[Rfam]
RNA sequence: UAACAAGACAAGCCUAAUGCUUAAUGCAGCGGGGGAUUUCCUAAAUUAGGGGUGAAUCCUUCACUGGUAGGGAAAAUCUCUCUUCCCGAACCCGUCAACUAACCUCGCAGGCUCAAUUUGAGAGGAGAA
Numbered sequence: 001u002a003a004c005a006a007g008a009c010a011a012g013c014c015u016a017a018u019g020c021u022u023a024a025u026g027c028a029g030c031g032g033g034g035g036a037u038u039u040c041c042u043a044a045a046u047u048a049g050g051g052g053u054g055a056a057u058c059c060u061u062c063a064c065u066g067g068u069a070g071g072g073a074a075a076a077u078c079u080c081u082c083u084u085c086c087c088g089a090a091c092c093c094g095u096c097a098a099c100u101a102a103c104c105u106c107g108c109a110g111g112c113u114c115a116a117u118u119u120g121a122g123a124g125g126a127g128a129a
Base pairs, nucleotide, nucleotide: 011113012112013111014110018028019027020026029108030107031106032105033104034103041049042048050093051092052091058067059066070087071086072085073084
c-di-AMP riboswitch aptamer (ydaO/yuaA leader): a 129-nucleotide sequence from Clostridium oryzae. The match comes from Rfam's covariance-model search (95 bits).